[Rfam]
RNA sequence: UAAGCAGGAAUUGUGUGUAUCGGUGUUAUGCUGUAAACUGUGCAUUUCAUGCCGAAAGAGUUUCCUGCCAAAACAUUUUUGUGGAGAAUGGGCAGUUGGUUUAUUCAUUUUGGUGUUUAUUCCAACAAUCAUUUUCCUCACAUAU
Dot-bracket structure: ...(((((((....((((((...................))))))................)))))))............(.(((((((((...((((........................))))..))))))))).)......
RNA: small nucleolar RNA snoR135